[Rfam]
RNA sequence: UACAUUCUUCGGGGCAGGGUGCAAUUCCCGACCGGCGGUGACAAAUAUACCCUAUUUGAAGUCCGUGACCCGCAUAACGCGGUGGAGCCAGUGUGAGUCUGGCGCCGACAGUUAAAGUCUGGAUGUGAGAAGAAAACC
Numbered sequence: 001u002a003c004a005u006u007c008u009u010c011g012g013g014g015c016a017g018g019g020u021g022c023a024a025u026u027c028c029c030g031a032c033c034g035g036c037g038g039u040g041a042c043a044a045a046u047a048u049a050c051c052c053u054a055u056u057u058g059a060a061g062u063c064c065g066u067g068a069c070c071c072g073c074a075u076a077a078c079g080c081g082g083u084g085g086a087g088c089c090a091g092u093g094u095g096a097g098u099c100u101g102g103c104g105c106c107g108a109c110a111g112u113u114a115a116a117g118u119c120u121g122g123a124u125g126u127g128a129g130a131a132g133a134a135a136a137c138c
Stems, first nucleotide, its partner, number of pairs: 005134006017029003031118002033107002035066004061105002070082002087103005109121003
Record summary:
The record is a 138-nucleotide RNA sequence from Enterococcus sulfureus, which matches "FMN riboswitch aptamer (RFN element)" in Rfam. Lineage of the source: Bacteria > Bacillati > Bacillota > Enterococcus > Enterococcus sulfureus. Rfam links the family to the GO term FMN binding.